[Rfam]
RNA sequence: UGCCAAAAUUUUCCUCGGUAGUUAACUGCAGCCGGUUUCAUAAUUCGGCAGUUAACUACCGAAUAAUAU
Numbered sequence: 001u002g003c004c005a006a007a008a009u010u011u012u013c014c015u016c017g018g019u020a021g022u023u024a025a026c027u028g029c030a031g032c033c034g035g036u037u038u039c040a041u042a043a044u045u046c047g048g049c050a051g052u053u054a055a056c057u058a059c060c061g062a063a064u065a066a067u068a069u
Stems, first nucleotide, its partner, number of pairs: 012065001015062015